This 86-nucleotide sequence from Nocardia ignorata belongs to the Rfam family "Selenocysteine transfer RNA". On this family, see Mizutani and Goto, FEBS Lett 2000: "Eukaryotic selenocysteine tRNA has the 9/4 secondary structure". The family has 109 seed sequences and 4,211 matches in Rfam 15.1. Clan: tRNA clan.
RNA sequence: AGGAGAUUUAACCGCCAUGGUGGCGGGACCGCCUUGAAAGCGGCGCGGCCCCUCACGGGGCAGGGGUUCGAUUCCUCAAAUCUCCG
Number, nucleotide and partner (000 for none) at each position: 001a000002g085003g084004a083005g082006a081007u080008u079009u078010a000011a000012c026013c025014g024015c023016c022017a021018u000019g000020g000021u017022g016023g015024c014025g013026g012027g046028a000029c043030c042031g041032c040033c000034u000035u000036g000037a000038a000039a000040g032041c031042g030043g029044c000045g000046c027047g000048g061049c060050c059051c058052c057053u000054c000055a000056c000057g052058g051059g050060g049061c048062a000063g077064g076065g075066g074067u000068u000069c000070g000071a000072u000073u000074c066075c065076u064077c063078a009079a008080a007081u006082c005083u004084c003085c002086g000